[Rfam]
RNA sequence: GGUCAUGAGUGUCAGCGACAAGCCCUGGCUCGCUGUCCGGCAACCCUCCUGUCGCGGUGGGGUGCCCCAGGUGAGGACCGGACCGGAAGACCUUCGGUAAGCGCGAGCG
Numbered sequence: 001g002g003u004c005a006u007g008a009g010u011g012u013c014a015g016c017g018a019c020a021a022g023c024c025c026u027g028g029c030u031c032g033c034u035g036u037c038c039g040g041c042a043a044c045c046c047u048c049c050u051g052u053c054g055c056g057g058u059g060g061g062g063u064g065c066c067c068c069a070g071g072u073g074a075g076g077a078c079c080g081g082a083c084c085g086g087a088a089g090a091c092c093u094u095c096g097g098u099a100a101g102c103g104c105g106a107g108c109g
Stems, first nucleotide, its partner, number of pairs: 001079004009038001011037001013035004021030002039066003044062003048057002082098006